[Rfam]
RNA: Small nucleolar RNA R44/J54/Z268 family
RNA sequence: UGUGCAAGUGAAGAUAAAAUAGACAGGGACAUCAGCACUCUGUAAGAGUAUGAUGACAUGUCUUUGGGAAUCUCUCUGAUGCACA
Number, nucleotide and partner (000 for none) at each position: 001u000002g084003u083004g082005c081006a080007a000008g000009u000010g000011a000012a000013g000014a000015u000016a000017a000018a000019a000020u000021a000022g000023a000024c000025a000026g000027g000028g000029a000030c000031a000032u000033c000034a000035g000036c000037a000038c000039u000040c000041u000042g000043u000044a000045a000046g000047a000048g000049u000050a000051u000052g000053a000054u000055g000056a000057c000058a000059u000060g000061u000062c000063u000064u000065u000066g000067g000068g000069a000070a000071u000072c000073u000074c000075u000076c000077u000078g000079a000080u006081g005082c004083a003084c002085a000